[Rfam]
RNA sequence: UGUCAUACUGGUGAUGGAGUUCACCAAAACCGCCGUUCGGGCUGAUAACUCCUACAGGAUG
Number, nucleotide and partner (000 for none) at each position: 001u000002g000003u000004c000005a000006u000007a000008c000009u000010g025011g024012u023013g022014a000015u000016g052017g051018a050019g049020u048021u047022c013023a012024c011025c010026a000027a000028a000029a000030c000031c000032g042033c041034c040035g000036u000037u000038c000039g000040g034041g033042c032043u000044g000045a000046u000047a021048a020049c019050u018051c017052c016053u000054a000055c000056a000057g000058g000059a000060u000061g000

The record is a 61-nucleotide RNA sequence, which matches "Fluoride riboswitch aptamer (crcB RNA motif)" in Rfam.
Its family is annotated with response to fluoride and positive regulation of gene expression in the Gene Ontology.
The sequence is in the family's curated seed alignment.